A member of the RNA family "c-di-AMP riboswitch aptamer (ydaO/yuaA leader)" from Mangrovihabitans endophyticus, 129 nucleotides long.
[Rfam]
RNA sequence: ACGGCCACCGCGCCCGUCCCGGCGAACCGGGGAACCACCGCGCAGCAAUGGGGUGAAUCCGCGCCAGCGGUAGGGCCAUCUUCCGCCCGAAUCCGUCAGCUAACCCGGUAGGCGGCCGACGGAAGAGAG
Numbered sequence: 001a002c003g004g005c006c007a008c009c010g011c012g013c014c015c016g017u018c019c020c021g022g023c024g025a026a027c028c029g030g031g032g033a034a035c036c037a038c039c040g041c042g043c044a045g046c047a048a049u050g051g052g053g054u055g056a057a058u059c060c061g062c063g064c065c066a067g068c069g070g071u072a073g074g075g076c077c078a079u080c081u082u083c084c085g086c087c088c089g090a091a092u093c094c095g096u097c098a099g100c101u102a103a104c105c106c107g108g109u110a111g112g113c114g115g116c117c118g119a120c121g122g123a124a125g126a127g128a129g
Base pairs, nucleotide, nucleotide: 004113005112006111011024012023013022014021026109027108028107029106030105031104036050037049051094052093053092059070060069061068062067073088074087075086076085